[Rfam]
RNA sequence: CGACCCGCGUUCCCCCCGUCGCCGCCAGCCGCGGGCGCUCGGGGUUUUAGCGGUGUCGCAGAGCAGCGGCGGCUUCUUCACCCGGCGGAGCAGAGGAUUCUUCCUCCUUUUGGGGGCUCCGCCGGAUUUUGCGGGGUUGUACAAAU
Numbered sequence: 001c002g003a004c005c006c007g008c009g010u011u012c013c014c015c016c017c018g019u020c021g022c023c024g025c026c027a028g029c030c031g032c033g034g035g036c037g038c039u040c041g042g043g044g045u046u047u048u049a050g051c052g053g054u055g056u057c058g059c060a061g062a063g064c065a066g067c068g069g070c071g072g073c074u075u076c077u078u079c080a081c082c083c084g085g086c087g088g089a090g091c092a093g094a095g096g097a098u099u100c101u102u103c104c105u106c107c108u109u110u111u112g113g114g115g116g117c118u119c120c121g122c123c124g125g126a127u128u129u130u131g132c133g134g135g136g137u138u139g140u141a142c143a144a145a146u
Stems, first nucleotide, its partner, number of pairs: 001058004005053004014044005020037004071138006082125010093109005

Overview:
A member of the RNA family "Small nucleolar RNA SNORA79" from Oxylabes madagascariensis, 146 nucleotides long. Rfam's curators write: ACA65 (SNORA79) is a member of the H/ACA class of snoRNAs that guide the sites of modification of uridines to pseudouridines. This snoRNA was identified by computational screening and its expression in mouse experimentally verified by Northern blot and primer extension analysis. On this family, see Schattner et al., RNA 2006: "A computational screen for mammalian pseudouridylation guide H/ACA RNAs". The family's RNA type in Rfam is H/ACA-box small nucleolar RNA. The family's consensus secondary structure was predicted with RNAalifold.